[Rfam]
RNA: Clostridiales-2 RNA
RNA sequence: CCUUUGCAGGGGUUUGGAAAGGGGAUCCCCCUUUCACGUUUUGAGGAGGGUGCUCAGGAUGCAGACAAAGCUCCAAAGGCAUCCGUCGAAGGGGUC
Numbered sequence: 001c002c003u004u005u006g007c008a009g010g011g012g013u014u015u016g017g018a019a020a021g022g023g024g025a026u027c028c029c030c031c032u033u034u035c036a037c038g039u040u041u042u043g044a045g046g047a048g049g050g051u052g053c054u055c056a057g058g059a060u061g062c063a064g065a066c067a068a069a070g071c072u073c074c075a076a077a078g079g080c081a082u083c084c085g086u087c088g089a090a091g092g093g094g095u096c
Stems, first nucleotide, its partner, number of pairs: 015036002018034006057084005